[Rfam]
Shown here is a 96-nucleotide RNA from Marinobacter sp. ELB17, a member of the family "Group II catalytic intron D1-D4-1".
RNA sequence: CGCCGAUAGGGGUAACCCCGCCGGUGAUUGAGCAGAAGUCAGCAGACGGCAUAGUAGCCAAACGCCCAUCGUAAUGGUUGGGACAGGGUGAAGGCC
Dot-bracket structure: ((.((.(.(((....))).).)).))...........(((....)))(((......(((.....(((............)))....)))....)))